RNA sequence: CUGAUUGCGCGACGCAAUGAAAUUCACGCCCCAUCCGGGCACCUGGCGUGAACCGAGCGAGUGGUGCGACCCCCGCGACUUCCC
Numbered sequence: 001c002u003g004a005u006u007g008c009g010c011g012a013c014g015c016a017a018u019g020a021a022a023u024u025c026a027c028g029c030c031c032c033a034u035c036c037g038g039g040c041a042c043c044u045g046g047c048g049u050g051a052a053c054c055g056a057g058c059g060a061g062u063g064g065u066g067c068g069a070c071c072c073c074c075g076c077g078a079c080u081u082c083c084c
Stems, first nucleotide, its partner, number of pairs: 003082002008077004013059003023052007037071002039067005